[Rfam]
RNA sequence: ACUGGGAGCGUGGCGUCUCCUGUAAUCCGGCUACUCGGAGGUCGGGUACAGACGAUGGUUUGAGGUUGGGAGUCCUGUUACUGUGUGGUCCAUGUUGACUGGACGUCCACACUAAGCCUGGUAUUAAUAUGGACCCCCCGGAGGAGUCUGGGGGGUGUAGGUUAACUAAGGAGAGGCGAAUCGGGCCAGGAGACCCAGCAGCCAAAAGUCUCCGUAUCGGGCAGUAAAGGGAUAGCGGCCGGGAGUGGACGCUCAAUAACAGCCCGACCAAUACAAUCAGAGGUUU
Numbered sequence: 001a002c003u004g005g006g007a008g009c010g011u012g013g014c015g016u017c018u019c020c021u022g023u024a025a026u027c028c029g030g031c032u033a034c035u036c037g038g039a040g041g042u043c044g045g046g047u048a049c050a051g052a053c054g055a056u057g058g059u060u061u062g063a064g065g066u067u068g069g070g071a072g073u074c075c076u077g078u079u080a081c082u083g084u085g086u087g088g089u090c091c092a093u094g095u096u097g098a099c100u101g102g103a104c105g106u107c108c109a110c111a112c113u114a115a116g117c118c119u120g121g122u123a124u125u126a127a128u129a130u131g132g133a134c135c136c137c138c139c140g141g142a143g144g145a146g147u148c149u150g151g152g153g154g155g156u157g158u159a160g161g162u163u164a165a166c167u168a169a170g171g172a173g174a175g176g177c178g179a180a181u182c183g184g185g186c187c188a189g190g191a192g193a194c195c196c197a198g199c200a201g202c203c204a205a206a207a208g209u210c211u212c213c214g215u216a217u218c219g220g221g222c223a224g225u226a227a228a229g230g231g232a233u234a235g236c237g238g239c240c241g242g243g244a245g246u247g248g249a250c251g252c253u254c255a256a257u258a259a260c261a262g263c264c265c266g267a268c269c270a271a272u273a274c275a276a277u278c279a280g281a282g283g284u285u286u
Stems, first nucleotide, its partner, number of pairs: 001042003004021005026039003048286001050284001056279005064269007075262006082255002085252003089249005095243001099242004104237003107231002110229001113226002116222009125164004130159002133156010166170001173212005184203003
This 286-nucleotide sequence from Danaus plexippus belongs to the Rfam family "Metazoan signal recognition particle RNA". Rfam links the family to the GO terms signal recognition particle, endoplasmic reticulum targeting and SRP-dependent cotranslational protein targeting to membrane, signal sequence recognition. It scores 194 bits against the family's covariance model. On this family, see Regalia et al., Nucleic Acids Res 2002: "Prediction of signal recognition particle RNA genes". The source organism's lineage runs through Eukaryota, Protostomia, Allotriocarida, Danaus and Danaus plexippus. About the family: The signal recognition particle (SRP) is a universally conserved ribonucleoprotein. It is involved in the co-translational targeting of proteins to membranes.